Small nucleolar RNA SNORD116: a 93-nucleotide RNA from Eschrichtius robustus.
The source organism's lineage runs through Eukaryota, Eumetazoa, Bilateria, Euteleostomi and Eschrichtius.
The match comes from Rfam's covariance-model search (71 bits).
The literature on the family includes a 2000 paper in Proc Natl Acad Sci U S A by Cavaille et al., "Identification of brain-specific and imprinted small nucleolar RNA genes exhibiting an unusual genomic organization".
Rfam 15.1 lists 3,260 matches to the family in 170 species.
RNA sequence: GGAUCGAUGAUGACACCCUUGUAUGCCUUCCUUGGAAACUCUGAACAAAAUGGGUGAGAACACUCGACCGUAUCCUUAUCGAAACUGAGGUUA
Numbered sequence: 001g002g003a004u005c006g007a008u009g010a011u012g013a014c015a016c017c018c019u020u021g022u023a024u025g026c027c028u029u030c031c032u033u034g035g036a037a038a039c040u041c042u043g044a045a046c047a048a049a050a051u052g053g054g055u056g057a058g059a060a061c062a063c064u065c066g067a068c069c070g071u072a073u074c075c076u077u078a079u080c081g082a083a084a085c086u087g088a089g090g091u092u093a
Base pairs, nucleotide, nucleotide: 002092003091004090005089026056028054029053030052032048033047034046
Dot-bracket structure: .((((....................(.(((.(((...........)))...))).)................................)))).